This 117-nucleotide RNA sequence from Syntrophomonas wolfei belongs to the Rfam family "Molybdenum/Tungsten riboswitch aptamer (Moco RNA motif)". It scores 68 bits against the family's covariance model. A reference for the family is Regulski et al. (2008), "in molybdenum cofactor and tungsten cofactor metabolism", Mol Microbiol.

Nucleotides: 117
Base pairs, nucleotide, nucleotide: 004110006108011103012102013101014100015099016098019054020053021052022051023050024049027047028046029045034041035040059084060083061082062081063080064079065078066077067076069074085094086093
Number, partner (000 for none) and nucleotide at each position: 001000u002000u003000u004110a005000c006108a007000u008000a009000c010000u011103u012102u013101u014100u015099c016098c017000g018000a019054a020053c021052u022051u023050g024049a025000g026000g027047a028046c029045c030000u031000a032000a033000a034041g035040c036000a037000a038000a039000u040035g041034c042000c043000a044000u045029g046028g047027u048000a049024u050023c051022a052021a053020g054019u055000c056000a057000u058000u059084g060083g061082g062081u063080a064079c065078a066077c067076c068000g069074g070000g071000a072000a073000a074069c075000g076067g077066g078065u079064g080063u081062g082061c083060c084059u085094c086093c087000c088000a089000c090000u091000g092000u093086g094085g095000a096000a097000a098016g099015g100014a101013g102012a103011a104000c105000c106000u107000a108006u109000a110004u111000c112000c113000a114000a115000a116000c117000g